[Rfam]
miR-430 microRNA precursor family: a 74-nucleotide sequence from Merluccius polli. The literature on the family includes a 2005 paper in Science by Giraldez et al., "MicroRNAs regulate brain morphogenesis in zebrafish".

RNA sequence: AUCAUUACCCUAACUUGAGCAUUCACUAUGCUGGUUCAAAAUUUAGUAAGUGCUACUUGUUAGGGGUAGUUUUA
Numbered sequence: 001a002u003c004a005u006u007a008c009c010c011u012a013a014c015u016u017g018a019g020c021a022u023u024c025a026c027u028a029u030g031c032u033g034g035u036u037c038a039a040a041a042u043u044u045a046g047u048a049a050g051u052g053c054u055a056c057u058u059g060u061u062a063g064g065g066g067u068a069g070u071u072u073u074a
Stems, first nucleotide, its partner, number of pairs: 004070008013060002017056001018054006025047003
The family is grouped with related families in Rfam's "mir-290 clan".